[Rfam]
RNA sequence: GCUGCUUUUCGAAGCAGACUUUUUCGUUGACGAAAAAGAUCUCCAAACCUUUGUCAGCGCGGCUCAUAACCGCGCUCUUUUUUU
Numbered sequence: 001g002c003u004g005c006u007u008u009u010c011g012a013a014g015c016a017g018a019c020u021u022u023u024u025c026g027u028u029g030a031c032g033a034a035a036a037a038g039a040u041c042u043c044c045a046a047a048c049c050u051u052u053g054u055c056a057g058c059g060c061g062g063c064u065c066a067u068a069a070c071c072g073c074g075c076u077c078u079u080u081u082u083u084u
Stems, first nucleotide, its partner, number of pairs: 002017006019038008056076007064068001
This 84-nucleotide RNA sequence from Paraburkholderia tagetis belongs to the Rfam family "Burkholderia sRNA 25".
NCBI's taxonomy places the organism under Bacteria, Pseudomonadati, Betaproteobacteria, Burkholderiaceae, Paraburkholderia.
Rfam classes the family as a small RNA.
A reference for the family is Sass et al. (2017), "Identification of small RNAs abundant in Burkholderia cenocepacia biofilms reveal putative regulators with a potential role in carbon and iron metabolism", Sci Rep.
The base pairs follow the family's consensus structure, which was predicted with RNAfold.
From the family's description: Identified by RNA-seq, RACE and Northern blot. Strongly expressed in biofilm.